Mammalian CPEB3 ribozyme: a 76-nucleotide sequence from Crocodylus porosus.
Taxonomically the source falls in Crocodylus (Eukaryota, Opisthokonta, Eumetazoa, Amniota).
The base pairs follow the family's consensus structure, which is taken from published work.
RNA sequence: AAUCACAAACUUGAGGCCACAGCAGAAGUGCUCACAGUGCGGCCUGUUAGAUUUUAACAAAUCUGCAAAUUCUGCC
Numbered sequence: 001a002a003u004c005a006c007a008a009a010c011u012u013g014a015g016g017c018c019a020c021a022g023c024a025g026a027a028g029u030g031c032u033c034a035c036a037g038u039g040c041g042g043c044c045u046g047u048u049a050g051a052u053u054u055u056a057a058c059a060a061a062u063c064u065g066c067a068a069a070u071u072c073u074g075c076c
Stems, first nucleotide, its partner, number of pairs: 015044004022075006028040003048065007